[Rfam]
RNA: SAM riboswitch aptamer (S box leader)
RNA sequence: UUCUUAUCAAGAGAGGUUGAGAGAAUGGCUCUAUGACACCUCAGCAACCACCGUUUAGACGGAAAGGUGCUAAUUCCUGCAAGUUUGGUGAAAACUUGCAAGAUAAGAA
Numbered sequence: 001u002u003c004u005u006a007u008c009a010a011g012a013g014a015g016g017u018u019g020a021g022a023g024a025a026u027g028g029c030u031c032u033a034u035g036a037c038a039c040c041u042c043a044g045c046a047a048c049c050a051c052c053g054u055u056u057a058g059a060c061g062g063a064a065a066g067g068u069g070c071u072a073a074u075u076c077c078u079g080c081a082a083g084u085u086u087g088g089u090g091a092a093a094a095c096u097u098g099c100a101a102g103a104u105a106a107g108a109a
Stems, first nucleotide, its partner, number of pairs: 001109008013042005021031003027077002043071004048067002051062003075101001080098006